[Rfam]
RNA sequence: UAAAAGAAAAGGCAAACCCAUACGAAAGAUGGGGACGCAAAGCCACGGGUCUAAAGCUAAUGCCAUGACAGCCGGGUUGCCGUG
Numbered sequence: 001u002a003a004a005a006g007a008a009a010a011g012g013c014a015a016a017c018c019c020a021u022a023c024g025a026a027a028g029a030u031g032g033g034g035a036c037g038c039a040a041a042g043c044c045a046c047g048g049g050u051c052u053a054a055a056g057c058u059a060a061u062g063c064c065a066u067g068a069c070a071g072c073c074g075g076g077u078u079g080c081c082g083u084g
Stems, first nucleotide, its partner, number of pairs: 012038002017033005023028001041078004046074003049069003056063002
Dot-bracket structure: ...........((...(((((.(....))))))...))..((((.((((((....((....))...)))..)))))))......
About this RNA:
c-di-GMP-I riboswitch aptamer: an 84-nucleotide RNA sequence from Pelotomaculum propionicicum. Pairs were carried over by alignment from the consensus structure, which is taken from published work. Taxonomically the source falls in Pelotomaculum (Bacteria, Bacillati, Bacillota, Eubacteriales).